Nucleotides: 083
Base pairs, nucleotide, nucleotide: 001075002074003073004072005071006070007069008068009067012043013042014041015039016038025034026033027032045060046059047058048057
Number, partner (000 for none) and nucleotide at each position: 001075g002074u003073c004072g005071g006070g007069a008068g009067g010000g011000c012043g013042g014041c015039u016038a017000a018000u019000a020000c021000a022000a023000c024000a025034c026033c027032c028000g029000c030000a031000a032027g033026g034025g035000a036000a037000a038016u039015a040000c041014g042013c043012c044000c045060g046059c047058c048057g049000a050000c051000u052000g053000u054000g055000u056000g057048c058047g059046g060045u061000u062000u063000c064000a065000a066000a067009c068008c069007u070006c071005c072004c073003g074002a075001c076000a077000c078000c079000u080000u081000g082000c083000g
This 83-nucleotide sequence from Pseudoxanthomonas sp. CF125 belongs to the Rfam family "sRNA-Xcc1". Taxonomically the source falls in Pseudoxanthomonas (Bacteria, Pseudomonadati, Pseudomonadota, Lysobacteraceae). The base pairs follow the family's consensus structure, which was predicted with RNAalifold. By type it is a small RNA.